The record is a 109-nucleotide RNA from Coregonus sp. 'balchen', which matches "Phenylalanine leader peptide" in Rfam. The family's RNA type in Rfam is cis-regulatory leader. Its family is annotated with cellular amino acid metabolic process in the Gene Ontology. The literature on the family includes a 1978 paper in Proc Natl Acad Sci U S A by Zurawski et al., "Nucleotide sequence of the leader region of the phenylalanine operon of Escherichia coli". It scores 55 bits against the family's covariance model.

RNA sequence: AAAAAAAAAAAUUUUUUUUUUUUUUUUUUUUUUUUUUUCCCCCCCCCGGGGAGGGGGGGAAAAAAAAAAAAAAAAAAAAAAGGGGAAAAAAAAACCAAAUUUUUUUUUU
Numbered sequence: 001a002a003a004a005a006a007a008a009a010a011a012u013u014u015u016u017u018u019u020u021u022u023u024u025u026u027u028u029u030u031u032u033u034u035u036u037u038u039c040c041c042c043c044c045c046c047c048g049g050g051g052a053g054g055g056g057g058g059g060a061a062a063a064a065a066a067a068a069a070a071a072a073a074a075a076a077a078a079a080a081a082g083g084g085g086a087a088a089a090a091a092a093a094a095c096c097a098a099a100u101u102u103u104u105u106u107u108u109u
Base pairs, nucleotide, nucleotide: 016082017081018080019079021077022076023075024074025073026072027071028070029069030068031067032066033065034064036062037061038060039059042056043055044054045053086104087103088102089101090100

The family's consensus secondary structure was predicted with CMfinder.